A member of the RNA family "Small nucleolar RNA SNORD45" from Pelusios castaneus, 83 nucleotides long.
The family's consensus secondary structure was predicted with PFOLD.
Rfam classes the family as a C/D-box small nucleolar RNA.
[Rfam]
RNA sequence: GGUCAGUGAUGAGACUCAACAUGUAUUAUCUGACUCUAAAGUUGAAGAUCACCACUUUAGCUCUAGAAUUACUCUGAGACCUG
Numbered sequence: 001g002g003u004c005a006g007u008g009a010u011g012a013g014a015c016u017c018a019a020c021a022u023g024u025a026u027u028a029u030c031u032g033a034c035u036c037u038a039a040a041g042u043u044g045a046a047g048a049u050c051a052c053c054a055c056u057u058u059a060g061c062u063c064u065a066g067a068a069u070u071a072c073u074c075u076g077a078g079a080c081c082u083g
Base pairs, nucleotide, nucleotide: 001081002080003079004078
Notes
It scores 63 bits against the family's covariance model.